[Rfam]
RNA: ZMP/ZTP riboswitch aptamer (pfl RNA motif)
Organism: Congzhengia minquanensis
RNA sequence: GCGGUUUUUUGCAACUGACGGAGCGUGGACUACCACAGGGGAGCAAAAAACAAUAUUUUUUGUCGACCGUCUGGGCAGUCCUA
Dot-bracket structure: ...(((((((((..(([[[[[...((((....))))..))..)))))))))........(((((..]]]]]..))))).....